[Rfam]
RNA sequence: CGCUAGCGUGGACGGGUUAGGACCGGUGGCGCGCUAGGGAAAUCCGCACCACGGGGAUGGGUUCUGAGAUGCGGACGCGCUGGCGAAGCUAGAGGCGCGGGACCCGAAAUAGUCUGGCGGAG
Numbered sequence: 001c002g003c004u005a006g007c008g009u010g011g012a013c014g015g016g017u018u019a020g021g022a023c024c025g026g027u028g029g030c031g032c033g034c035u036a037g038g039g040a041a042a043u044c045c046g047c048a049c050c051a052c053g054g055g056g057a058u059g060g061g062u063u064c065u066g067a068g069a070u071g072c073g074g075a076c077g078c079g080c081u082g083g084c085g086a087a088g089c090u091a092g093a094g095g096c097g098c099g100g101g102a103c104c105c106g107a108a109a110u111a112g113u114c115u116g117g118c119g120g121a122g
Base pairs, nucleotide, nucleotide: 001039003037004036005035006034007033008032009031010030026052027051028050029049043075044074045073046072047071048070061103062102063101064100076099077098078097079096080095081094088118089117090116091115092114093113
Source information
Betaproteobacteria-1 RNA: a 122-nucleotide RNA from Paraburkholderia phymatum. Pairs were carried over by alignment from the consensus structure, which is taken from published work. By type it is a small RNA.